[Rfam]
mraW RNA: a 108-nucleotide RNA from Angustibacter sp. Root456.
RNA sequence: CCUCGUCCGCUCGUCGUGGUCUCCACCCGCUCCCGACGUCCUGGCGCACCUUCCCCGGUGCCAGGCCGCUCGGAGCGGUUGGGGACCAGGCCGAGCGGCCGUGUCCUU
Numbered sequence: 001c002c003u004c005g006u007c008c009g010c011u012c013g014u015c016g017u018g019g020u021c022u023c024c025a026c027c028c029g030c031u032c033c034c035g036a037c038g039u040c041c042u043g044g045c046g047c048a049c050c051u052u053c054c055c056c057g058g059u060g061c062c063a064g065g066c067c068g069c070u071c072g073g074a075g076c077g078g079u080u081g082g083g084g085a086c087c088a089g090g091c092c093g094a095g096c097g098g099c100c101g102u103g104u105c106c107u108u
Stems, first nucleotide, its partner, number of pairs: 010095004015090001018087002021084005027078007035070001037068002040065008
The base pairs follow the family's consensus structure, which is taken from published work.